The record is a 133-nucleotide RNA from Nitratiruptor sp. SB155-2, which matches "purD RNA motif" in Rfam. The organism belongs to Nitratiruptor, within Bacteria. Rfam links the family to the GO term regulation of gene expression. Rfam's curators put it in the seed alignment.
RNA sequence: GUAGAUUUUGGUGUGUGUCGGUGACUCCGUUUGAGCCAGGGACGCCUGGCGAGGAGCCGCCGCCUAAUCCAAAACUCGCUCCCUCUUCUUAUGGUCUUAGGGACCAUGGCAUUGCGCGAACGCCCGCUCGGGC
Numbered sequence: 001g002u003a004g005a006u007u008u009u010g011g012u013g014u015g016u017g018u019c020g021g022u023g024a025c026u027c028c029g030u031u032u033g034a035g036c037c038a039g040g041g042a043c044g045c046c047u048g049g050c051g052a053g054g055a056g057c058c059g060c061c062g063c064c065u066a067a068u069c070c071a072a073a074a075c076u077c078g079c080u081c082c083c084u085c086u087u088c089u090u091a092u093g094g095u096c097u098u099a100g101g102g103a104c105c106a107u108g109g110c111a112u113u114g115c116g117c118g119a120a121c122g123c124c125c126g127c128u129c130g131g132g133c
Base pairs, nucleotide, nucleotide: 003076004075007073008072009071010070011069019062020061021060022059023058025056026055027054028053035050036049037048038047039046040045090108091107092106093105094104095103096102